Nitrogen stress-induced RNA 1: a 61-nucleotide RNA sequence from Nostoc minutum. Lineage of the source: Bacteria > Bacillati > Nostocaceae > Nostoc > Nostoc minutum. A search with the family's covariance model found it, with a score of 55 bits.
RNA sequence: CAGUAAAUGCACCCUGAUAACUAACUCCCUUAGUUGGCUGCCACCACUGGGGGAUUUUUUU
Number, nucleotide and partner (000 for none) at each position: 001c000002a000003g012004u011005a000006a000007a000008u000009g000010c000011a004012c003013c000014c000015u000016g000017a000018u000019a000020a000021c000022u000023a000024a000025c000026u000027c053028c052029c051030u050031u049032a048033g047034u000035u046036g045037g044038c000039u000040g000041c000042c000043a000044c037045c036046a035047c033048u032049g031050g030051g029052g028053g027054a000055u000056u000057u000058u000059u000060u000061u000